[Rfam]
The record is a 175-nucleotide RNA sequence from a Planctomycetaceae bacterium, which matches "Group II catalytic intron D1-D4-3" in Rfam.
The source organism's lineage runs through Bacteria, Pseudomonadati, Planctomycetota, Planctomycetales and Planctomycetaceae.

RNA sequence: GUCGCCGCGAGGCGGGGUCUGGAGGAAGUCCAAGGCAAAAUCGCGGGGCGAUGAACAAAAACCGGAUACGAGGCGUGGUGCAUCCGGGGCGAGCGGGCACGUGACCGCGAAGCCCUCCAUCUGCGAUUGGGGUGUACUUUGUAAAUCCGGCGUCUACGCGAGGACCGUUUCGUGU
Numbered sequence: 001g002u003c004g005c006c007g008c009g010a011g012g013c014g015g016g017g018u019c020u021g022g023a024g025g026a027a028g029u030c031c032a033a034g035g036c037a038a039a040a041u042c043g044c045g046g047g048g049c050g051a052u053g054a055a056c057a058a059a060a061a062c063c064g065g066a067u068a069c070g071a072g073g074c075g076u077g078g079u080g081c082a083u084c085c086g087g088g089g090c091g092a093g094c095g096g097g098c099a100c101g102u103g104a105c106c107g108c109g110a111a112g113c114c115c116u117c118c119a120u121c122u123g124c125g126a127u128u129g130g131g132g133u134g135u136a137c138u139u140u141g142u143a144a145a146u147c148c149g150g151c152g153u154c155u156a157c158g159c160g161a162g163g164a165c166c167g168u169u170u171c172g173u174g175u
Stems, first nucleotide, its partner, number of pairs: 002015005028175002031172001035168002041161005046155005062150006073142003077138007087115004093108004